Small nucleolar RNA SNORD35: an 86-nucleotide RNA from Loxodonta africana. Rfam classes the family as a C/D-box small nucleolar RNA. The source organism's lineage runs through Eukaryota, Bilateria, Gnathostomata, Afrotheria and Loxodonta. Rfam's curators write: U35 is a C/D box snoRNA located in intron 6 of ribosomal protein L13A and intron 3 of ribosomal protein S11 in humans and at homologous positions in mouse and chicken ribosomal protein genes. Its family is annotated with nucleolus and RNA processing in the Gene Ontology.
RNA sequence: GGCAGAUGAUGGCUUCUCUCACGAUGGUCUGCGAAUGCCUGUGUGGGCACUGCCGAUAACGCCAGUGGCUCAGCUGAUGCCAGCAG
Dot-bracket structure: ((((.........................................................................)))).....